lin-4 microRNA precursor family: a 79-nucleotide RNA sequence from Podarcis muralis.
Lineage of the source: Eukaryota > Metazoa > Eumetazoa > Bifurcata > Podarcis.
For this family Rfam cites "microRNAs: tiny regulators with great potential" (Ambros, Cell, 2001).
Pairs were carried over by alignment from the consensus structure, which was predicted with RNAalifold.
The match comes from Rfam's covariance-model search (41 bits).
Its family is annotated with RISC complex and miRNA-mediated post-transcriptional gene silencing in the Gene Ontology.
[Rfam]
RNA sequence: UUUCGACCUGCUCUUUGGGGCUGGCGGGGGGGGGGGAGCACUGCUUUCCCCCACCGCCAGCCCCAAAGACCAGGUCGGG
Numbered sequence: 001u002u003u004c005g006a007c008c009u010g011c012u013c014u015u016u017g018g019g020g021c022u023g024g025c026g027g028g029g030g031g032g033g034g035g036g037a038g039c040a041c042u043g044c045u046u047u048c049c050c051c052c053a054c055c056g057c058c059a060g061c062c063c064c065a066a067a068g069a070c071c072a073g074g075u076c077g078g079g
Stems, first nucleotide, its partner, number of pairs: 013068003017064004022059004027054001029052004033047004